[Rfam]
RNA: terC RNA
Organism: Vannielia litorea
RNA sequence: ACCGGUGACCGGGCCCCUCUGGCGGAAGUGGCGGCGCUUCCGUGAUGUCGGCACCUGAC
Numbered sequence: 001a002c003c004g005g006u007g008a009c010c011g012g013g014c015c016c017c018u019c020u021g022g023c024g025g026a027a028g029u030g031g032c033g034g035c036g037c038u039u040c041c042g043u044g045a046u047g048u049c050g051g052c053a054c055c056u057g058a059c
Base pairs, nucleotide, nucleotide: 006053007052009051010050011049012048022043023042024041025040026039027038028037029036